Notes: This 128-nucleotide RNA from Camelus dromedarius belongs to the Rfam family "Small nucleolar RNA SNORA27". The organism belongs to Camelus, within Eukaryota. The family is grouped with related families in Rfam's "SNORA27 clan". Rfam describes the family as follows. ACA27 is a member of the H/ACA class of snoRNA that guide the sites of modification of uridines to pseudouridines. Rfam classes the family as an H/ACA-box small nucleolar RNA. Gene Ontology terms of the family: nucleolus and RNA processing.
RNA sequence: UGUCCAUUUCCUUCUUUAAGACUAGUACAUUAUGUCUUUAUUGGUCAUUCAAGUGGGGCAAAGAAAAUAUCCUUUUAAAACUCAAACAUACUGGGUGUUUGUCUUGUAACCUAUCAGAGGAAAUAAAC
Numbered sequence: 001u002g003u004c005c006a007u008u009u010c011c012u013u014c015u016u017u018a019a020g021a022c023u024a025g026u027a028c029a030u031u032a033u034g035u036c037u038u039u040a041u042u043g044g045u046c047a048u049u050c051a052a053g054u055g056g057g058g059c060a061a062a063g064a065a066a067a068u069a070u071c072c073u074u075u076u077a078a079a080a081c082u083c084a085a086a087c088a089u090a091c092u093g094g095g096u097g098u099u100u101g102u103c104u105u106g107u108a109a110c111c112u113a114u115c116a117g118a119g120g121a122a123a124u125a126a127a128c
Stems, first nucleotide, its partner, number of pairs: 033060005041052004070121006083106001084104001086102003090098002